[Rfam]
RNA sequence: GAUACGAUAGCAUGGUAGAAAGAUUCAGAUAUUUCUUUCUACCAUACUAUUUAGUAUUGUAAAUUAUGGAACUACAUCAAAAU
Numbered sequence: 001g002a003u004a005c006g007a008u009a010g011c012a013u014g015g016u017a018g019a020a021a022g023a024u025u026c027a028g029a030u031a032u033u034u035c036u037u038u039c040u041a042c043c044a045u046a047c048u049a050u051u052u053a054g055u056a057u058u059g060u061a062a063a064u065u066a067u068g069g070a071a072c073u074a075c076a077u078c079a080a081a082a083u
Base pairs, nucleotide, nucleotide: 006051007050008049009048010047012045013044014043015042016041017040018039019038020037021036022035023034